[Rfam]
Glycine riboswitch aptamer: an 87-nucleotide RNA from Manganibacter manganicus.

RNA sequence: UGCCUGCUCACGGGAGAGAGUAGCGAAAGCUGCCGCCGAAGGGGAAAUCGCCCGAAAUCUCUCAGGCAAAAGAACCGUAGCAGGCCA
Numbered sequence: 001u002g003c004c005u006g007c008u009c010a011c012g013g014g015a016g017a018g019a020g021u022a023g024c025g026a027a028a029g030c031u032g033c034c035g036c037c038g039a040a041g042g043g044g045a046a047a048u049c050g051c052c053c054g055a056a057a058u059c060u061c062u063c064a065g066g067c068a069a070a071a072g073a074a075c076c077g078u079a080g081c082a083g084g085c086c087a
Base pairs, nucleotide, nucleotide: 005082006081007080008079010078011077012076013075020033021032022031023030035067036066037065038063039062042061043060044059048055049054
Dot-bracket structure: ....((((.((((......((((......)))).(((((..(((...((....))...))))).))).......)))))))).....
The literature on the family includes a 2004 paper in Science by Mandal et al., "A glycine-dependent riboswitch that uses cooperative binding to control gene expression". Gene Ontology term of the family: glycine biosynthetic process. The pairing is the family consensus, mapped onto this sequence.